[Rfam]
Nucleotides: 074
Stems, first nucleotide, its partner, number of pairs: 002073023
Number, partner (000 for none) and nucleotide at each position: 001000a002073c003072c004071a005070c006069u007068a008067a009066g010065c011064c012063a013062u014061c015060u016059c017058u018057c019056c020055a021054g022053c023052c024051c025000u026000a027000a028000a029000u030000a031000u032000u033000u034000u035000c036000a037000a038000a039000a040000a041000a042000a043000c044000a045000a046000c047000c048000u049000g050000a051024g052023g053022g054021c055020u056019g057018g058017a059016g060015a061014g062013a063012u064011g065010g066009c067008u068007u069006a070005g071004u072003g073002g074000u